[Rfam]
RNA: 7SK RNA
Organism: Sinocyclocheilus rhinocerous
RNA sequence: CAACAUGACAGUAGAUAAUCUCAUCUGUCACCCCAUUGAUCGCUAGGGUUGAUUCGGCUGAUCUGGCUGGCUAGGCGGGUGUCCCCUUCCUCCCUCACCGGUCCAUGUGUGUCCCUCCCGAAGCUCUGCGCUCGGUGGAAGAGGACGAGAUCCCCCGGCGGACGAUCGUUGGUAUAGAAGUAGCUGCGCUCCCCUGCUAGAACCUCCAAACAAGCUCAAGGCCCAUUUGUAGGAGAAACGUAGGGAAGUCGAGCUCCAAGACUUCAAACACAUCCAAAUGAGGCACUGCAUGUGGCAGUCUGCCUUCCUUU
Numbered sequence: 001c002a003a004c005a006u007g008a009c010a011g012u013a014g015a016u017a018a019u020c021u022c023a024u025c026u027g028u029c030a031c032c033c034c035a036u037u038g039a040u041c042g043c044u045a046g047g048g049u050u051g052a053u054u055c056g057g058c059u060g061a062u063c064u065g066g067c068u069g070g071c072u073a074g075g076c077g078g079g080u081g082u083c084c085c086c087u088u089c090c091u092c093c094c095u096c097a098c099c100g101g102u103c104c105a106u107g108u109g110u111g112u113c114c115c116u117c118c119c120g121a122a123g124c125u126c127u128g129c130g131c132u133c134g135g136u137g138g139a140a141g142a143g144g145a146c147g148a149g150a151u152c153c154c155c156c157g158g159c160g161g162a163c164g165a166u167c168g169u170u171g172g173u174a175u176a177g178a179a180g181u182a183g184c185u186g187c188g189c190u191c192c193c194c195u196g197c198u199a200g201a202a203c204c205u206c207c208a209a210a211c212a213a214g215c216u217c218a219a220g221g222c223c224c225a226u227u228u229g230u231a232g233g234a235g236a237a238a239c240g241u242a243g244g245g246a247a248g249u250c251g252a253g254c255u256c257c258a259a260g261a262c263u264u265c266a267a268a269c270a271c272a273u274c275c276a277a278a279u280g281a282g283g284c285a286c287u288g289c290a291u292g293u294g295g296c297a298g299u300c301u302g303c304c305u306u307c308c309u310u311u
Base pairs, nucleotide, nucleotide: 003102006097007096008095011093014089015088022081023080024079025078026077027076028075029074031070032069033066034065035064038063039062040061041060042058043057044056112165113164114161115160117158118135119134120133121132123131124130136157137156138155143153144152145151183254184253185252189248190247192245193244194243195242196241197240204235205234206233207232210230211229212228213227214226276311277310278309280306281305282304283303284302285299286298287297288296289295